[Rfam]
RNA sequence: UCUCACGUGGUGAUUCUCCAAUGGGAAGCACUUCCUGUUGUGUGAAAUAAUACCAAGUGCUUCCUUUUAGAGUUACCGUUUGAGA
Dot-bracket structure: (((((.((((((...(((.((.(((((((((((....(.............)..))))))))))).)).))).)))))).)))))
RNA: mir-515 microRNA precursor family